The family of this 178-nucleotide sequence from Leptolyngbya sp. Heron Island J is "Antisense RNA which regulates isiA expression". Rfam 15.1 lists 3,397 matches to the family in 659 species. The base pairs follow the family's consensus structure, which was predicted with PFOLD.
[Rfam]
RNA sequence: GAUAGCCAAAGAUGAUUACUGGAUUAGUGGUGACAUUGUCUACCAGAUGAACCGUUCCUAAUACAGGAUCAUAAAUGCCACCAAAGCGUAUUGCUUUAAAGACAAAUAGUAAGGCGGCAAACCCCAAGAAAAUUAGGUGUUGUCCUAAAAUAAAGCCUAGGGUUUCUGGAUUACUCCA
Numbered sequence: 001g002a003u004a005g006c007c008a009a010a011g012a013u014g015a016u017u018a019c020u021g022g023a024u025u026a027g028u029g030g031u032g033a034c035a036u037u038g039u040c041u042a043c044c045a046g047a048u049g050a051a052c053c054g055u056u057c058c059u060a061a062u063a064c065a066g067g068a069u070c071a072u073a074a075a076u077g078c079c080a081c082c083a084a085a086g087c088g089u090a091u092u093g094c095u096u097u098a099a100a101g102a103c104a105a106a107u108a109g110u111a112a113g114g115c116g117g118c119a120a121a122c123c124c125c126a127a128g129a130a131a132a133u134u135a136g137g138u139g140u141u142g143u144c145c146u147a148a149a150a151u152a153a154a155g156c157c158u159a160g161g162g163u164u165u166c167u168g169g170a171u172u173a174c175u176c177c178a
Base pairs, nucleotide, nucleotide: 136175137174138173139172141170144169145168148165

A search with the family's covariance model found it, with a score of 92 bits.